[Rfam]
RNA sequence: GGUCAUGCUUUUCCACAGCUUUCUUGAACUUUCUUUUGUUAUAUAACUCUGUUAGCUAAUCAAUUAAAGCUAUACAGCUGAUCUAUAUAUAUAUAUAGCAUAUAUGUAUAUAUAUACAGCAUGGGAAAGCUCAAGAAAGCUGUGGGAGAACAUGGCGA
Numbered sequence: 001g002g003u004c005a006u007g008c009u010u011u012u013c014c015a016c017a018g019c020u021u022u023c024u025u026g027a028a029c030u031u032u033c034u035u036u037u038g039u040u041a042u043a044u045a046a047c048u049c050u051g052u053u054a055g056c057u058a059a060u061c062a063a064u065u066a067a068a069g070c071u072a073u074a075c076a077g078c079u080g081a082u083c084u085a086u087a088u089a090u091a092u093a094u095a096u097a098g099c100a101u102a103u104a105u106g107u108a109u110a111u112a113u114a115u116a117c118a119g120c121a122u123g124g125g126a127a128a129g130c131u132c133a134a135g136a137a138a139g140c141u142g143u144g145g146g147a148g149a150a151c152a153u154g155g156c157g158a
Stems, first nucleotide, its partner, number of pairs: 003155005013145003017141006024134004029129007